[Rfam]
RNA sequence: UCUAUGCUUCCGCCAGCGGUCCCCUCUUUGGGGCCCUAAAGCUCCAGUGGUGGUAAGGGGUUUCGGCUUCUGAAAACCACUGGCGCCCGGAUGCGGCAAGGCCAUGCCGAGCUGCGACCGGGGCCCCGAUGAACUCCGGUUCGUCGGAGGGGUGGCCCUCCACCUCGAUCCCGUCCCUCGAGGAACGACUCGAUGA
Numbered sequence: 001u002c003u004a005u006g007c008u009u010c011c012g013c014c015a016g017c018g019g020u021c022c023c024c025u026c027u028u029u030g031g032g033g034c035c036c037u038a039a040a041g042c043u044c045c046a047g048u049g050g051u052g053g054u055a056a057g058g059g060g061u062u063u064c065g066g067c068u069u070c071u072g073a074a075a076a077c078c079a080c081u082g083g084c085g086c087c088c089g090g091a092u093g094c095g096g097c098a099a100g101g102c103c104a105u106g107c108c109g110a111g112c113u114g115c116g117a118c119c120g121g122g123g124c125c126c127c128g129a130u131g132a133a134c135u136c137c138g139g140u141u142c143g144u145c146g147g148a149g150g151g152g153u154g155g156c157c158c159u160c161c162a163c164c165u166c167g168a169u170c171c172c173g174u175c176c177c178u179c180g181a182g183g184a185a186c187g188a189c190u191c192g193a194u195g196a
Base pairs, nucleotide, nucleotide: 018157019156020155021152022151023150024149025148026147027146030127031126032125033124034123035122036121041086042085044083045082046081047080048079049078050077054072055071058070059069060067061066088120089119090118092116093115094114095113096112097111100108101107102106128145129144130143131142132141133140134139163183164182165181166180167179168178
psaA RNA: a 196-nucleotide sequence from Synechococcus sp. RS9916. The organism belongs to Synechococcus, within Bacteria. It is annotated as a cis-regulatory element.